[Rfam]
RNA sequence: UGAGGGUUUGAAGCCACAGCAGAAGUGUUCAUAACGUGGUAAUGUCAGAAUCUAAUGAAUCAGUGAAUUUUGCU
Numbered sequence: 001u002g003a004g005g006g007u008u009u010g011a012a013g014c015c016a017c018a019g020c021a022g023a024a025g026u027g028u029u030c031a032u033a034a035c036g037u038g039g040u041a042a043u044g045u046c047a048g049a050a051u052c053u054a055a056u057g058a059a060u061c062a063g064u065g066a067a068u069u070u071u072g073c074u
Stems, first nucleotide, its partner, number of pairs: 013040003018074007025037003046063001048061002051058002

Background
The family of this 74-nucleotide sequence from Crocodylus porosus is "Mammalian CPEB3 ribozyme". It scores 41 bits against the family's covariance model.